RNA sequence: ACUGGGCGAACCACCGCAAGCGCUGUAUAGGCGGGGCUUGCAAACCACCUAAAGGUGCUGUGGUAAAGAGCCAUGGUGCUGAGCGUUUAGGAAAAGGUAGACCAACGAGUUUAUCAGGU
Numbered sequence: 001a002c003u004g005g006g007c008g009a010a011c012c013a014c015c016g017c018a019a020g021c022g023c024u025g026u027a028u029a030g031g032c033g034g035g036g037c038u039u040g041c042a043a044a045c046c047a048c049c050u051a052a053a054g055g056u057g058c059u060g061u062g063g064u065a066a067a068g069a070g071c072c073a074u075g076g077u078g079c080u081g082a083g084c085g086u087u088u089a090g091g092a093a094a095a096g097g098u099a100g101a102c103c104a105a106c107g108a109g110u111u112u113a114u115c116a117g118g119u
Base pairs, nucleotide, nucleotide: 003013004012005011016041017040018039019038020037021036023034024033025032026031046118048091049090050089051088052087053086054080055079057077058076059075061073062072063071064070096115097114098113099112100111101110
Group II catalytic intron D1-D4-2: a 119-nucleotide RNA from Salinimicrobium marinum. Pairs were carried over by alignment from the consensus structure. A reference for the family is Bonen and Vogel (2001), "The ins and outs of group II introns", Trends Genet. Its family is annotated with Group II intron splicing in the Gene Ontology. Group II introns are found in rRNA, tRNA and mRNA of organelles in fungi, plants and protists, and also in mRNA in bacteria. Lineage of the source: Bacteria > Pseudomonadati > Bacteroidota > Flavobacteriales > Salinimicrobium.